[Rfam]
RNA: Mammalian CPEB3 ribozyme
Organism: Alligator mississippiensis
RNA sequence: GUUGCAAGGUUGAGGCCACAGCAGAAGCACUCAUAGUGUGGCCUGUCAGAGUCCAAUGAAAUCUGCUAAUUUGGCU
Numbered sequence: 001g002u003u004g005c006a007a008g009g010u011u012g013a014g015g016c017c018a019c020a021g022c023a024g025a026a027g028c029a030c031u032c033a034u035a036g037u038g039u040g041g042c043c044u045g046u047c048a049g050a051g052u053c054c055a056a057u058g059a060a061a062u063c064u065g066c067u068a069a070u071u072u073g074g075c076u
Stems, first nucleotide, its partner, number of pairs: 014043004020076003024072003027039003047065004052060001